Shown here is a 72-nucleotide sequence from Myotis davidii, a member of the family "mir-9193 microRNA precursor family".

RNA sequence: CUUGGGGGGGGGUUCCUUCAGCCUGGAUUGUGAGAGGGUGCAGGCCAGGCCGAGGGACCCCACCAGUACACG
Numbered sequence: 001c002u003u004g005g006g007g008g009g010g011g012g013u014u015c016c017u018u019c020a021g022c023c024u025g026g027a028u029u030g031u032g033a034g035a036g037g038g039u040g041c042a043g044g045c046c047a048g049g050c051c052g053a054g055g056g057a058c059c060c061c062a063c064c065a066g067u068a069c070a071c072g
Stems, first nucleotide, its partner, number of pairs: 003070002006067001008063001010061003014057006021050003025046002028043005
It scores 68 bits against the family's covariance model.
The organism belongs to Myotis, within Eukaryota.
Its family is annotated with miRNA-mediated post-transcriptional gene silencing and RISC complex in the Gene Ontology.